RNA sequence: ACCUGACUUCCCUCCCCGGUCCCCCAGGCCAGGAUCUGACCUGCCCCUUCCCUGCCUGCGCCCCUGUCAUAACUAUAAAGGGAAGGGGCAGGUCAGAUCCUGGCCUGGGGGACCGGGGAGGGAAGUCAGGUCCAC
Numbered sequence: 001a002c003c004u005g006a007c008u009u010c011c012c013u014c015c016c017c018g019g020u021c022c023c024c025c026a027g028g029c030c031a032g033g034a035u036c037u038g039a040c041c042u043g044c045c046c047c048u049u050c051c052c053u054g055c056c057u058g059c060g061c062c063c064c065u066g067u068c069a070u071a072a073c074u075a076u077a078a079a080g081g082g083a084a085g086g087g088g089c090a091g092g093u094c095a096g097a098u099c100c101u102g103g104c105c106u107g108g109g110g111g112a113c114c115g116g117g118g119a120g121g122g123a124a125g126u127c128a129g130g131u132c133c134a135c
Base pairs, nucleotide, nucleotide: 010122011121012120013119014118015117016116018114019113021111022110023109024108025107026106027105028104029103030102031101032100033099034098035097036096037095038094039093040092041091042090043089044088045087046086047085048084049083050082051081052080053079